[Rfam]
RNA sequence: GAUAAAGCGGGUGAAAAGCCCGCUCGCCGAAAGACCAAGGGUUCCUGUCCAACGUUAAUCGGGGCAGGGUAAGUCGACCCCUAAGGCGAGGCUGAAAAGCGUAGUCGAUGGGAAACAGGUUAAUAUUCCUGUACUUAGUAUUGUUGCGAAGGGGGGACGGAGAAGGCUAUGUUGGCCGGGCGACGGUUGUCCUGGUUUAAACGUAUAGGUGUGUGUUCUAGGUAAAUCCGGUUCACUUUUCACUGAGGCGUGAUGACGAGGCACUAUGGUGCUGAAGCAACAAAUGCCCUGCUCCCAAGAAAAGCCUCUAAGCUAGAGACAAUACGAAAAUCGUACCCCAAACCGACACAGGUGGUCAGGUAGAGAAUACCAAGGCGCU
Number, nucleotide and partner (000 for none) at each position: 001g000002a000003u000004a000005a000006a024007g023008c022009g021010g020011g019012u000013g000014a000015a000016a000017a000018g000019c011020c010021c009022g008023c007024u006025c377026g376027c375028c374029g000030a000031a000032a000033g357034a356035c355036c354037a000038a000039g337040g336041g000042u000043u000044c068045c067046u066047g065048u064049c063050c000051a000052a000053c061054g060055u000056u000057a000058a000059u000060c054061g053062g000063g049064g048065c047066a046067g045068g044069g000070u000071a000072a000073g000074u000075c333076g332077a331078c000079c000080c111081c110082u000083a000084a000085g106086g105087c104088g000089a102090g000091g100092c099093u098094g000095a000096a000097a000098a093099g092100c091101g000102u089103a000104g087105u086106c085107g000108a000109u000110g081111g080112g000113a000114a000115a132116c131117a130118g129119g128120u000121u000122a000123a000124u000125a000126u000127u000128c119129c118130u117131g116132u115133a000134c000135u328136u327137a000138g325139u324140a323141u322142u321143g320144u319145u318146g313147c312148g000149a000150a309151g308152g307153g306154g305155g000156g000157a000158c000159g295160g294161a293162g292163a000164a000165g288166g287167c286168u000169a000170u282171g281172u280173u279174g278175g196176c195177c194178g193179g192180g191181c000182g000183a000184c000185g000186g000187u000188u000189g000190u000191c180192c179193u178194g177195g176196u175197u256198u255199a000200a000201a251202c250203g249204u248205a000206u000207a000208g244209g243210u242211g000212u000213g236214u235215g234216u000217u000218c231219u230220a000221g229222g228223u000224a000225a000226a000227u000228c222229c221230g219231g218232u000233u000234c215235a214236c213237u000238u000239u000240u000241c000242a210243c209244u208245g000246a000247g000248g204249c203250g202251u201252g000253a000254u000255g198256a197257c000258g000259a000260g273261g272262c271263a270264c269265u000266a000267u000268g000269g264270u263271g262272c261273u260274g000275a000276a000277g000278c174279a173280a172281c171282a170283a000284a000285u000286g167287c166288c165289c000290u000291g000292c162293u161294c160295c159296c000297a000298a000299g000300a000301a000302a000303a000304g000305c154306c153307u152308c151309u150310a000311a000312g147313c146314u000315a000316g000317a000318g145319a144320c143321a142322a141323u140324a139325c138326g000327a136328a135329a000330a000331u077332c076333g075334u000335a000336c040337c039338c000339c000340a000341a000342a000343c352344c351345g000346a000347c000348a000349c000350a000351g344352g343353u000354g036355g035356u034357c033358a000359g371360g370361u369362a368363g000364a000365g000366a000367a000368u362369a361370c360371c359372a000373a000374g028375g027376c026377g025378c000379u000